[Rfam]
Shown here is a 363-nucleotide RNA from Facklamia languida, a member of the family "transfer-messenger RNA". The base pairs follow the family's consensus structure, which is taken from published work. Rfam classes the family as a non-coding RNA gene. Clan: tRNA clan. About the family: Bacterial tmRNA, also known as 10Sa RNA or SsrA, is named for its dual tRNA and mRNA-like properties.
RNA sequence: GGGGGUGUCAUGGUUUCGACAGGUAUCGUUCGAACCUUGGAUGCGUCAGGUAGGCAGCGACUACCUCAAAAACGCUACAGUUAAAUAUAACUGCAAACAAUAACAACAAUUUAGCUUUAGCUGCCUAAAAACAGCGAGCUAAGAUCAGCCUAAUAUCGCCCAUGUAUUAGUUCCUGGUCUCAAUUAUAGUGGGAUACGCUAGGCCUUUCCGUCUGUAAGUCCUAGAAGAGAUGAUCAGACUCGCGAAUGCAGAUGCCUGUUGGUCGGCUAUGCAGGAGCUAACUCUAAUAGACACAACUAUUGGCGUAGAUUCCUUGGUGGCGAGGUAUUUGGACAGGGGUUCGACUCCCCUCAUCUCCAGUU
Numbered sequence: 001g002g003g004g005g006u007g008u009c010a011u012g013g014u015u016u017c018g019a020c021a022g023g024u025a026u027c028g029u030u031c032g033a034a035c036c037u038u039g040g041a042u043g044c045g046u047c048a049g050g051u052a053g054g055c056a057g058c059g060a061c062u063a064c065c066u067c068a069a070a071a072a073c074g075c076u077a078c079a080g081u082u083a084a085a086u087a088u089a090a091c092u093g094c095a096a097a098c099a100a101u102a103a104c105a106a107c108a109a110u111u112u113a114g115c116u117u118u119a120g121c122u123g124c125c126u127a128a129a130a131a132c133a134g135c136g137a138g139c140u141a142a143g144a145u146c147a148g149c150c151u152a153a154u155a156u157c158g159c160c161c162a163u164g165u166a167u168u169a170g171u172u173c174c175u176g177g178u179c180u181c182a183a184u185u186a187u188a189g190u191g192g193g194a195u196a197c198g199c200u201a202g203g204c205c206u207u208u209c210c211g212u213c214u215g216u217a218a219g220u221c222c223u224a225g226a227a228g229a230g231a232u233g234a235u236c237a238g239a240c241u242c243g244c245g246a247a248u249g250c251a252g253a254u255g256c257c258u259g260u261u262g263g264u265c266g267g268c269u270a271u272g273c274a275g276g277a278g279c280u281a282a283c284u285c286u287a288a289u290a291g292a293c294a295c296a297a298c299u300a301u302u303g304g305c306g307u308a309g310a311u312u313c314c315u316u317g318g319u320g321g322c323g324a325g326g327u328a329u330u331u332g333g334a335c336a337g338g339g340g341u342u343c344g345a346c347u348c349c350c351c352u353c354a355u356c357u358c359c360a361g362u363u
Stems, first nucleotide, its partner, number of pairs: 001359007020332008029323001034319003039314003044306005049065005054078001056076004117138002120135004143179006150170007159193005199225005205219003211241001214238001243279002248274004255268003259298004263293003336352005